RNA sequence: GGGAAGUGAUGAGUGGUUAAUACUCGCUAAUUAUGCGAGAAGAGUGUUUCGCUCAGCCUGUUACGACAAUUGAGCGCUCCUCCUUUCUCUAACCAUCAGAUCCC
Numbered sequence: 001g002g003g004a005a006g007u008g009a010u011g012a013g014u015g016g017u018u019a020a021u022a023c024u025c026g027c028u029a030a031u032u033a034u035g036c037g038a039g040a041a042g043a044g045u046g047u048u049u050c051g052c053u054c055a056g057c058c059u060g061u062u063a064c065g066a067c068a069a070u071u072g073a074g075c076g077c078u079c080c081u082c083c084u085u086u087c088u089c090u091a092a093c094c095a096u097c098a099g100a101u102c103c104c
Stems, first nucleotide, its partner, number of pairs: 001104004014095005023039005042079007058072001060070002

Rfam assigns this 104-nucleotide sequence from Raphanus sativus to the family "Small nucleolar RNA Z279/snoR105/snoR108". From the family's description: This family includes the plant snoRNAs known as Z279, snoR105 and snoR108. For this family Rfam cites "Experimental RNomics: identification of 140 candidates for small non-messenger RNAs in the plant Arabidopsis thaliana" (Marker et al., Curr Biol, 2002). The source organism's lineage runs through Eukaryota, Streptophyta, Streptophytina, Brassiceae and Raphanus. It is annotated as a C/D-box small nucleolar RNA. Pairs were carried over by alignment from the consensus structure, which was predicted with PFOLD.